RNA sequence: CUCCCCGAAAUGCAUUUAGGUGCAGCGUUGCGUGGUUCACCGCGGAGGUAGAGCUACUGGAUGGCCGAUGGGCCCUACUAGGUUACUGACGUCAGCCAAACUCCGAAUGCCGUGGUGUAGAGCGUGGCAGUGAGACGGCGGGGGAUAAGCUCCGUGCGUCGAAAGGGAAACAGCCCAGAUCGCCGGCUAAGGCCCCAAAGCGUGUGCUAAGUGGGAAAGGAUGUGCAGUCGCAAAGACAACCAGGAGGUUGGCUUAGAAGCAGCCACCCUUGAAAGAGUGCGUAAUAGCUCACUGGUCAAGUGAUUGUGCGCCGAUAAUGUAGCGGGGCUCAAGCACACCGCCGAAGCCGCGGCACAUCCACCUUUAGGUGGGUGUGGGUAGGGGAGCGUCCCCCAUUCAGGGAAGCCGUCGGGUGACCGGCGGUGGAGGGUGGGGGAGUGAGAAU
Numbered sequence: 001c002u003c004c005c006c007g008a009a010a011u012g013c014a015u016u017u018a019g020g021u022g023c024a025g026c027g028u029u030g031c032g033u034g035g036u037u038c039a040c041c042g043c044g045g046a047g048g049u050a051g052a053g054c055u056a057c058u059g060g061a062u063g064g065c066c067g068a069u070g071g072g073c074c075c076u077a078c079u080a081g082g083u084u085a086c087u088g089a090c091g092u093c094a095g096c097c098a099a100a101c102u103c104c105g106a107a108u109g110c111c112g113u114g115g116u117g118u119a120g121a122g123c124g125u126g127g128c129a130g131u132g133a134g135a136c137g138g139c140g141g142g143g144g145a146u147a148a149g150c151u152c153c154g155u156g157c158g159u160c161g162a163a164a165g166g167g168a169a170a171c172a173g174c175c176c177a178g179a180u181c182g183c184c185g186g187c188u189a190a191g192g193c194c195c196c197a198a199a200g201c202g203u204g205u206g207c208u209a210a211g212u213g214g215g216a217a218a219g220g221a222u223g224u225g226c227a228g229u230c231g232c233a234a235a236g237a238c239a240a241c242c243a244g245g246a247g248g249u250u251g252g253c254u255u256a257g258a259a260g261c262a263g264c265c266a267c268c269c270u271u272g273a274a275a276g277a278g279u280g281c282g283u284a285a286u287a288g289c290u291c292a293c294u295g296g297u298c299a300a301g302u303g304a305u306u307g308u309g310c311g312c313c314g315a316u317a318a319u320g321u322a323g324c325g326g327g328g329c330u331c332a333a334g335c336a337c338a339c340c341g342c343c344g345a346a347g348c349c350g351c352g353g354c355a356c357a358u359c360c361a362c363c364u365u366u367a368g369g370u371g372g373g374u375g376u377g378g379g380u381a382g383g384g385g386a387g388c389g390u391c392c393c394c395c396a397u398u399c400a401g402g403g404a405a406g407c408c409g410u411c412g413g414g415u416g417a418c419c420g421g422c423g424g425u426g427g428a429g430g431g432u433g434g435g436g437g438a439g440u441g442a443g444a445a446u
Stems, first nucleotide, its partner, number of pairs: 001387006011024005026130001027128007036121001038117008051104001052102002058098003062094004070086001071084004134160004138155006165176003180353004185349003191343003200340001202339006219313002223310010240297005246270003251265003271275001276291001280289002354377010388441001390438010406425008